RNA sequence: CUCUGGCUAGGAAGAAGGCCAGGGCAGAAGGAG
Numbered sequence: 001c002u003c004u005g006g007c008u009a010g011g012a013a014g015a016a017g018g019c020c021a022g023g024g025c026a027g028a029a030g031g032a033g
Stems, first nucleotide, its partner, number of pairs: 001024008